Rfam assigns this 116-nucleotide RNA sequence from Chrysemys picta to the family "U5 spliceosomal RNA".

[Rfam]
RNA sequence: CUACUCUGGUUUCUCUUCAAAUUGUAUAAAUCUUUUGCCUUUUACUAAAGAUUUCCAUGGGGAGGAACAUUUACGAGUUUCUAUCUAAUUUUUUGAGGCUUUGCUUCGGUGAGGCC
Numbered sequence: 001c002u003a004c005u006c007u008g009g010u011u012u013c014u015c016u017u018c019a020a021a022u023u024g025u026a027u028a029a030a031u032c033u034u035u036u037g038c039c040u041u042u043u044a045c046u047a048a049a050g051a052u053u054u055c056c057a058u059g060g061g062g063a064g065g066a067a068c069a070u071u072u073a074c075g076a077g078u079u080u081c082u083a084u085c086u087a088a089u090u091u092u093u094u095g096a097g098g099c100u101u102u103g104c105u106u107c108g109g110u111g112a113g114g115c116c
Base pairs, nucleotide, nucleotide: 003078004077005076006075009068010067011066012065013064014063015062016061017060018059019058028054029053030052031051032050033049034048035047098115099114100113101112102111103110

Pairs were carried over by alignment from the consensus structure, which is taken from published work. The source organism's lineage runs through Eukaryota, Craniata, Cryptodira, Chrysemys and Chrysemys picta.